[Rfam]
RNA sequence: GAAAGAUCGGACCCGCUACUGUCCGAUUGGGCAAGGAAAUAAUAGCCCCAAUCAA
Numbered sequence: 001g002a003a004a005g006a007u008c009g010g011a012c013c014c015g016c017u018a019c020u021g022u023c024c025g026a027u028u029g030g031g032c033a034a035g036g037a038a039a040u041a042a043u044a045g046c047c048c049c050a051a052u053c054a055a
Stems, first nucleotide, its partner, number of pairs: 005028008029048004